RNA sequence: GCAGAGCUGCGGCCAUGCCCGCAGUUGCGAUUGAGCCGGGGAACGCCCCACAGGCGGGGCGAGCUACAUCGGC
Numbered sequence: 001g002c003a004g005a006g007c008u009g010c011g012g013c014c015a016u017g018c019c020c021g022c023a024g025u026u027g028c029g030a031u032u033g034a035g036c037c038g039g040g041g042a043a044c045g046c047c048c049c050a051c052a053g054g055c056g057g058g059g060c061g062a063g064c065u066a067c068a069u070c071g072g073c
Stems, first nucleotide, its partner, number of pairs: 001028003008023005035073005044061006
Shown here is a 73-nucleotide RNA sequence from Achromobacter sp. AONIH1, a member of the family "Burkholderiales-2 RNA". Pairs were carried over by alignment from the consensus structure, which is taken from published work. Lineage of the source: Bacteria > Pseudomonadati > Betaproteobacteria > Alcaligenaceae > Achromobacter. By type it is a cis-regulatory element.